[Rfam]
The record is a 158-nucleotide RNA from Xylanimonas protaetiae, which matches "c-di-AMP riboswitch aptamer (ydaO/yuaA leader)" in Rfam.
RNA sequence: GGUCCGUGGUCGACGAGGAUCCAUGACAGGGACGGGGGACCCACUUCCGGGUUCCGCUCGCGGAGCCCUUGGGGUGAAGCCGGGUGUCACAGCCCGGCCGGGUACUUCUCCUACCCGAACCCGACAGCUCACCUCGCAGGCGGCAGGAGAGGGAACAC
Numbered sequence: 001g002g003u004c005c006g007u008g009g010u011c012g013a014c015g016a017g018g019a020u021c022c023a024u025g026a027c028a029g030g031g032a033c034g035g036g037g038g039a040c041c042c043a044c045u046u047c048c049g050g051g052u053u054c055c056g057c058u059c060g061c062g063g064a065g066c067c068c069u070u071g072g073g074g075u076g077a078a079g080c081c082g083g084g085u086g087u088c089a090c091a092g093c094c095c096g097g098c099c100g101g102g103u104a105c106u107u108c109u110c111c112u113a114c115c116c117g118a119a120c121c122c123g124a125c126a127g128c129u130c131a132c133c134u135c136g137c138a139g140g141c142g143g144c145a146g147g148a149g150a151g152g153g154a155a156c157a158c
Base pairs, nucleotide, nucleotide: 003031004030005029033136034135035134036133037132042071043070072122073121074120080097081096082095083094100116101115102114103113